[Rfam]
RNA sequence: AUAAUGAUACUUCCGUAAUCAAAUUGGCUCGCCAUCACUGGGGAGAGGUGAAAAUCCUAUGU
Numbered sequence: 001a002u003a004a005u006g007a008u009a010c011u012u013c014c015g016u017a018a019u020c021a022a023a024u025u026g027g028c029u030c031g032c033c034a035u036c037a038c039u040g041g042g043g044a045g046a047g048g049u050g051a052a053a054a055u056c057c058u059a060u061g062u
Stems, first nucleotide, its partner, number of pairs: 012059001013027003028045003032041003046058003
RNA: pemK RNA